[Rfam]
RNA sequence: ACGACCUUACUUGAACAGGAUCUGUUCUAUAGGAAGUACCUCUGUAUCCUUGAUUUCUAAGUAGACAGGCCCAGUAACCUGGUUGAUGAUUCAUGUCCGUGCGAUCUGAGUGUGAUUAACGGCUACGAUUCUCCUCGGAGAGGCUGUGCUGUAGAGGAUCGCUACCUAGCCUGGUCUCGAACUUGCAAGGGUGGUCGCACGGUUGUCUGACAGGCU
Numbered sequence: 001a002c003g004a005c006c007u008u009a010c011u012u013g014a015a016c017a018g019g020a021u022c023u024g025u026u027c028u029a030u031a032g033g034a035a036g037u038a039c040c041u042c043u044g045u046a047u048c049c050u051u052g053a054u055u056u057c058u059a060a061g062u063a064g065a066c067a068g069g070c071c072c073a074g075u076a077a078c079c080u081g082g083u084u085g086a087u088g089a090u091u092c093a094u095g096u097c098c099g100u101g102c103g104a105u106c107u108g109a110g111u112g113u114g115a116u117u118a119a120c121g122g123c124u125a126c127g128a129u130u131c132u133c134c135u136c137g138g139a140g141a142g143g144c145u146g147u148g149c150u151g152u153a154g155a156g157g158a159u160c161g162c163u164a165c166c167u168a169g170c171c172u173g174g175u176c177u178c179g180a181a182c183u184u185g186c187a188a189g190g191g192u193g194g195u196c197g198c199a200c201g202g203u204u205g206u207c208u209g210a211c212a213g214g215c216u
Base pairs, nucleotide, nucleotide: 001037002036005033006032007031013027014026015025016024017023018022042068043067044066045065047063049061050060051059052058078214079213080212081211097202098201099200100199101198102197103196104195105194106193109163110162111161112160119152120151121150122149123148129142130141131140132139133138165190166189167188169186170185174182175181
Plant small nucleolar RNA U3: a 216-nucleotide RNA from Brassica napus. About the family: Small nucleolar RNAs (snoRNAs) are involved in the processing and modification of rRNA in the nucleolus. There are two main classes of snoRNAs: the box C/D class, and the box H/ACA class. Clan: U3 clan. The base pairs follow the family's consensus structure, which is taken from published work. By type it is a C/D-box small nucleolar RNA. A search with the family's covariance model found it, with a score of 165 bits.